[Rfam]
Description:
Shown here is an 88-nucleotide RNA sequence, a member of the family "freshwater-2 RNA".

RNA sequence: UCGCACAUCUGGUGUGAGACUUAUGCGGACAACAACCGCGUAUCCAGGAGAACUGGAAUUGGACUCCUAUUAGAGGAGAAACAAAAUG
Numbered sequence: 001u002c003g004c005a006c007a008u009c010u011g012g013u014g015u016g017a018g019a020c021u022u023a024u025g026c027g028g029a030c031a032a033c034a035a036c037c038g039c040g041u042a043u044c045c046a047g048g049a050g051a052a053c054u055g056g057a058a059u060u061g062g063a064c065u066c067c068u069a070u071u072a073g074a075g076g077a078g079a080a081a082c083a084a085a086a087u088g
Stems, first nucleotide, its partner, number of pairs: 001017006022042007043057004